[Rfam]
RNA: T-box leader
Organism: Tepidibacillus fermentans
RNA sequence: GUAUCGGCGAUGAGAAAGAGAGUAGAUCUUUUGCUUGGUCAACAGAGAAGACUUCCUUGGCUGGAAGAAGUCUGUCCGACUGAAGAUUGAAAUGCGCUUUUGAGCUUUGAAUCUGAAGGAAUUUAGGAUUCAACGGAUAUUUCCGUUAUCGAAAUGAAGUGAGGGUAUGACGAUAGUUUUUUGUCGUAUUCUAAACAGAGUGGAACCGCGGUUUAACCGUCUCUGUG
Numbered sequence: 001g002u003a004u005c006g007g008c009g010a011u012g013a014g015a016a017a018g019a020g021a022g023u024a025g026a027u028c029u030u031u032u033g034c035u036u037g038g039u040c041a042a043c044a045g046a047g048a049a050g051a052c053u054u055c056c057u058u059g060g061c062u063g064g065a066a067g068a069a070g071u072c073u074g075u076c077c078g079a080c081u082g083a084a085g086a087u088u089g090a091a092a093u094g095c096g097c098u099u100u101u102g103a104g105c106u107u108u109g110a111a112u113c114u115g116a117a118g119g120a121a122u123u124u125a126g127g128a129u130u131c132a133a134c135g136g137a138u139a140u141u142u143c144c145g146u147u148a149u150c151g152a153a154a155u156g157a158a159g160u161g162a163g164g165g166u167a168u169g170a171c172g173a174u175a176g177u178u179u180u181u182u183g184u185c186g187u188a189u190u191c192u193a194a195a196c197a198g199a200g201u202g203g204a205a206c207c208g209c210g211g212u213u214u215a216a217c218c219g220u221c222u223c224u225g226u227g
Stems, first nucleotide, its partner, number of pairs: 007105002015100004025088006038076001040074001049073006108132007134145003162192012197224004208220005